[Rfam]
RNA sequence: AUAUGUUUUGUUGAUGGUCCUCUAACCAUUAAAGUCACUUUCCUUGAGAAUAUUAGAAUAUACUUGUAAUGGUUAGAUGACCAUCAACAAACACGUU
Dot-bracket structure: ....((((.((((((((((.(((((((((((...................................))))))))))).)))))))))))))).....
Numbered sequence: 001a002u003a004u005g006u007u008u009u010g011u012u013g014a015u016g017g018u019c020c021u022c023u024a025a026c027c028a029u030u031a032a033a034g035u036c037a038c039u040u041u042c043c044u045u046g047a048g049a050a051u052a053u054u055a056g057a058a059u060a061u062a063c064u065u066g067u068a069a070u071g072g073u074u075a076g077a078u079g080a081c082c083a084u085c086a087a088c089a090a091a092c093a094c095g096u097u
Stems, first nucleotide, its partner, number of pairs: 005092004010088010021077011
The record is a 97-nucleotide RNA from Spinacia oleracea, which matches "MIR827 microRNA precursor family" in Rfam. Taxonomically the source falls in Spinacia (Eukaryota, Spermatophyta, Gunneridae, Anserineae). Gene Ontology terms of the family: RISC complex and miRNA-mediated post-transcriptional gene silencing.